[Rfam]
RNA sequence: UGUCUCCUCCAACCGUUCCUCGAACAAUUGGAUUCAGCCCGCACCCGAUGCGGGCUUUUUUUC
Numbered sequence: 001u002g003u004c005u006c007c008u009c010c011a012a013c014c015g016u017u018c019c020u021c022g023a024a025c026a027a028u029u030g031g032a033u034u035c036a037g038c039c040c041g042c043a044c045c046c047g048a049u050g051c052g053g054g055c056u057u058u059u060u061u062u063c
Stems, first nucleotide, its partner, number of pairs: 008032005015025001036056008
RNA: Betaproteobacteria toxic small RNA
Organism: Pseudoduganella namucuonensis